[Rfam]
The record is a 91-nucleotide RNA sequence from Clostridium pasteurianum, which matches "Glycine riboswitch aptamer" in Rfam. Taxonomically the source falls in Clostridium pasteurianum (Bacteria, Bacillati, Bacillota, Clostridium). The match comes from Rfam's covariance-model search (63 bits).
RNA sequence: GGACGAGACUCUGGAGAGACUCAAAGGAGCACCGAAGGGGAAAACUAAAAUUUUUAGUGAAACUCUCAGGUAAAAGAACGGAGAUUAUAUG
Numbered sequence: 001g002g003a004c005g006a007g008a009c010u011c012u013g014g015a016g017a018g019a020c021u022c023a024a025a026g027g028a029g030c031a032c033c034g035a036a037g038g039g040g041a042a043a044a045c046u047a048a049a050a051u052u053u054u055u056a057g058u059g060a061a062a063c064u065c066u067c068a069g070g071u072a073a074a075a076g077a078a079c080g081g082a083g084a085u086u087a088u089a090u091g
Base pairs, nucleotide, nucleotide: 006086007085009083010082011081012080013079020029021028022027031071032070033069034067035066038065039064040063044058045057046056047055048054049053